RNA sequence: GGCGAACGACAGGGGAGCGCCGCAGCGGCGCUGAGAGUGCGGACAGCCGCAGACCCUCGAACCUGCACCGGUUAGCACCGGCGAAGGAAGUCGGGAACGUCUCUCC
Numbered sequence: 001g002g003c004g005a006a007c008g009a010c011a012g013g014g015g016a017g018c019g020c021c022g023c024a025g026c027g028g029c030g031c032u033g034a035g036a037g038u039g040c041g042g043a044c045a046g047c048c049g050c051a052g053a054c055c056c057u058c059g060a061a062c063c064u065g066c067a068c069c070g071g072u073u074a075g076c077a078c079c080g081g082c083g084a085a086g087g088a089a090g091u092c093g094g095g096a097a098c099g100u101c102u103c104u105c106c
Stems, first nucleotide, its partner, number of pairs: 007093004011057004017031005038051005062087003068081004
Shown here is a 106-nucleotide sequence from Georgenia yuyongxinii, a member of the family "TPP riboswitch aptamer (THI element)". Rfam links the family to the GO term thiamine pyrophosphate binding.